[Rfam]
RNA sequence: UGGCUGUCGUGGUCAAAAAGUUAGGAGGUUGCCUUUGAGCCUUGGGGCGUCGCUUCACACUCCACUUGUUCAUGCGUGCCUCGCUCGGAAUUUCGGGUCGUCCAUCGUACUCGUGUGUGUAAACCACGAUUGCUACGGGACGUUAAGCAAUGGAGAUGACCCUUGAGGGAAGCAAUUCUGCAGAGACAUCUCCACCCGGAGUUGGCGAUGUGAGAUUACACCGUGGCAAGAUAUGCGAAGUCUCGGGUUUGCCGGGCGACCAACUUUUUGCUU
Numbered sequence: 001u002g003g004c005u006g007u008c009g010u011g012g013u014c015a016a017a018a019a020g021u022u023a024g025g026a027g028g029u030u031g032c033c034u035u036u037g038a039g040c041c042u043u044g045g046g047g048c049g050u051c052g053c054u055u056c057a058c059a060c061u062c063c064a065c066u067u068g069u070u071c072a073u074g075c076g077u078g079c080c081u082c083g084c085u086c087g088g089a090a091u092u093u094c095g096g097g098u099c100g101u102c103c104a105u106c107g108u109a110c111u112c113g114u115g116u117g118u119g120u121a122a123a124c125c126a127c128g129a130u131u132g133c134u135a136c137g138g139g140a141c142g143u144u145a146a147g148c149a150a151u152g153g154a155g156a157u158g159a160c161c162c163u164u165g166a167g168g169g170a171a172g173c174a175a176u177u178c179u180g181c182a183g184a185g186a187c188a189u190c191u192c193c194a195c196c197c198g199g200a201g202u203u204g205g206c207g208a209u210g211u212g213a214g215a216u217u218a219c220a221c222c223g224u225g226g227c228a229a230g231a232u233a234u235g236c237g238a239a240g241u242c243u244c245g246g247g248u249u250u251g252c253c254g255g256g257c258g259a260c261c262a263a264c265u266u267u268u269u270g271c272u273u
Stems, first nucleotide, its partner, number of pairs: 001015004018269003027261007036251003040247001043245006050238004067228002070226005076221003080214005085208003089203009099142001101140003105135001108132002111129005117124002143147001151194007162185003169178003

This 273-nucleotide RNA from Exophiala dermatitidis belongs to the Rfam family "Fungal signal recognition particle RNA". Its family is annotated with signal recognition particle, endoplasmic reticulum targeting, signal recognition particle, plasma membrane targeting and SRP-dependent cotranslational protein targeting to membrane, signal sequence recognition in the Gene Ontology. It is annotated as a non-coding RNA gene. On this family, see Wild et al., Curr Opin Struct Biol 2002: "Towards the structure of the mammalian signal recognition particle".